[Rfam]
RNA: tRNA
RNA sequence: GGGCGUGUGGCUCAGUUGGUAGAGCGUUCGCUUAGCAUACCAUCCGGUUUGCGAAAGGUCCUGGGUUCGAUUCCCAGCUCGUCCA
Numbered sequence: 001g002g003g004c005g006u007g008u009g010g011c012u013c014a015g016u017u018g019g020u021a022g023a024g025c026g027u028u029c030g031c032u033u034a035g036c037a038u039a040c041c042a043u044c045c046g047g048u049u050u051g052c053g054a055a056a057g058g059u060c061c062u063g064g065g066u067u068c069g070a071u072u073c074c075c076a077g078c079u080c081g082u083c084c085a
Base pairs, nucleotide, nucleotide: 001084002083003082004081005080007078010025011024012023013022027055028054029053030052031051061077062076063075064074065073